[Rfam]
RNA sequence: GAGAACCUCCCACGACUGAAGUCGUAGGCUUCUAAAAGUCUUGGUUCACCAGACUUAGUGAUUAGAAAUAGUCCCUACGAUUGUUAGGUUAUGAUACCCUCGGUUGACGCAUCAGACCGUUGCUCUAUCGUAUAUAUUUAAGUAGAAGUUAAGGGAACGCUUCGGUGAUAUAUACGUAAAAAGCCUAGUGAUCAUUGUCGAGAUGAAGUCGGA
Number, nucleotide and partner (000 for none) at each position: 001g049002a000003g047004a046005a045006c044007c043008u000009c000010c028011c027012a025013c024014g000015a022016c021017u000018g000019a000020a000021g016022u015023c000024g013025u012026a000027g011028g010029c038030u037031u036032c000033u000034a000035a000036a031037a030038g029039u000040c000041u000042u000043g007044g006045u005046u004047c003048a000049c001050c000051a000052g199053a198054c197055u000056u000057a076058g075059u000060g073061a072062u071063u070064a000065g000066a000067a000068a000069u000070a063071g062072u061073c060074c000075c058076u057077a000078c000079g193080a192081u191082u190083g189084u188085u187086a186087g185088g184089u183090u000091a000092u000093g000094a128095u127096a000097c000098c122099c000100u000101c119102g118103g117104u116105u115106g209107a000108c000109g000110c205111a204112u203113c202114a000115g105116a104117c103118c102119g101120u000121u000122g098123c000124u000125c000126u000127a095128u094129c000130g175131u174132a173133u172134a171135u170136a169137u168138u167139u000140a000141a000142g166143u165144a000145g163146a162147a161148g160149u159150u000151a000152a000153g000154g000155g000156a000157a000158c000159g149160c148161u147162u146163c145164g000165g143166u142167g138168a137169u136170a135171u134172a133173u132174a131175c130176g000177u000178a000179a000180a000181a000182a000183g089184c088185c087186u086187a085188g084189u083190g082191a081192u080193c079194a000195u000196u000197g054198u053199c052200g000201a000202g113203a112204u111205g110206a000207a000208g000209u106210c000211g000212g000213a000